[Rfam]
Nucleotides: 098
Stems, first nucleotide, its partner, number of pairs: 001026003004022005010017002067093002069090005075085003
Number, partner (000 for none) and nucleotide at each position: 001026a002025a003024u004022a005021u006020u007019u008018u009000a010017u011016u012000a013000a014000u015000u016011a017010a018008a019007a020006g021005g022004u023000a024003a025002u026001u027000u028000u029000u030000a031000u032000u033000g034000u035000u036000u037000a038000a039000u040000a041000u042000c043000a044000a045000a046000a047000a048000a049000a050000g051000u052000g053000a054000u055000a056000a057000a058000a059000u060000u061000a062000a063000c064000u065000u066000u067093a068092g069090c070089c071088u072087g073086c074000a075085u076084c077083c078000u079000u080000u081000a082000u083077g084076g085075a086073g087072c088071g089070g090069g091000a092068c093067u094000u095000u096000g097000g098000g